[Rfam]
RNA: L31-Firmicutes ribosomal protein leader
RNA sequence: CUAUAACUAAAAUUAUUAGUUAUGGCGGAAGGAG
Numbered sequence: 001c002u003a004u005a006a007c008u009a010a011a012a013u014u015a016u017u018a019g020u021u022a023u024g025g026c027g028g029a030a031g032g033a034g
Stems, first nucleotide, its partner, number of pairs: 001025010